Shown here is a 44-nucleotide RNA, a member of the family "Na+ riboswitch aptamer (DUF1646)".
It is one of the family's seed sequences.
A reference for the family is White et al. (2022), "Na(+) riboswitches regulate genes for diverse physiological processes in bacteria", Nat Chem Biol.
Rfam links the family to the GO terms sodium ion binding and regulation of gene expression.

RNA sequence: GGUUGGGCGCAAGCUUCAAGACAUAUCUCCAAGGGUGAGGAGAU
Numbered sequence: 001g002g003u004u005g006g007g008c009g010c011a012a013g014c015u016u017c018a019a020g021a022c023a024u025a026u027c028u029c030c031a032a033g034g035g036u037g038a039g040g041a042g043a044u
Base pairs, nucleotide, nucleotide: 003019004018005017006015007014008013025044026043027042028041029040030039